Rfam assigns this 93-nucleotide RNA from Micromonospora echinofusca to the family "Glycine riboswitch aptamer". Rfam describes the family as follows. This family represents the bacterial glycine riboswitch. NCBI's taxonomy places the organism under Bacteria, Actinomycetota, Actinomycetes, Micromonosporaceae, Micromonospora.

RNA sequence: CGAACCCGCGCGGGAGAGAUCCCGACCGUCCGUCGGGGCGCCGAAGGAGCAAACUCCCAAGAAACUCUCAGGCCCCGUUACCGCUCGGGUGAG
Numbered sequence: 001c002g003a004a005c006c007c008g009c010g011c012g013g014g015a016g017a018g019a020u021c022c023c024g025a026c027c028g029u030c031c032g033u034c035g036g037g038g039c040g041c042c043g044a045a046g047g048a049g050c051a052a053a054c055u056c057c058c059a060a061g062a063a064a065c066u067c068u069c070a071g072g073c074c075c076c077g078u079u080a081c082c083g084c085u086c087g088g089g090u091g092a093g
Stems, first nucleotide, its partner, number of pairs: 006088003010084004020038006040073003043069002047067003